Description:
This 75-nucleotide RNA from Porphyromonas catoniae belongs to the Rfam family "Bacteroidetes FopS (family of paralogous sRNAs)". Rfam 15.1 lists 822 matches to the family in 178 species. The base pairs follow the family's consensus structure, which is taken from published work. A search with the family's covariance model found it, with a score of 65 bits. Rfam describes the family as follows. The RNA-binding protein RbpB and BTncRNA_FopS sRNA are involved in the post-transcription regulation of polysaccharide utilisation loci (PUL).
RNA sequence: GUAUUUUUCAUGGUAUUAGAUUUAAGGUUAACAAAGAAUAGGGGUUGUCGGGAGACAACCCCUAUUCGCUUUUUA
Numbered sequence: 001g002u003a004u005u006u007u008u009c010a011u012g013g014u015a016u017u018a019g020a021u022u023u024a025a026g027g028u029u030a031a032c033a034a035a036g037a038a039u040a041g042g043g044g045u046u047g048u049c050g051g052g053a054g055a056c057a058a059c060c061c062c063u064a065u066u067c068g069c070u071u072u073u074u075a
Base pairs, nucleotide, nucleotide: 043060044059045058046057047056048055049054